RNA sequence: UUACCCCCGAACUGUAAGUCGCUUUGGAUAAAAGCAUCUGCUAAAUGCAUAUAU
Numbered sequence: 001u002u003a004c005c006c007c008c009g010a011a012c013u014g015u016a017a018g019u020c021g022c023u024u025u026g027g028a029u030a031a032a033a034g035c036a037u038c039u040g041c042u043a044a045a046u047g048c049a050u051a052u053a054u
Base pairs, nucleotide, nucleotide: 013043014041015040016039021035022034023033024032025031
Dot-bracket structure: ............((((....(((((.....)))))...))).)...........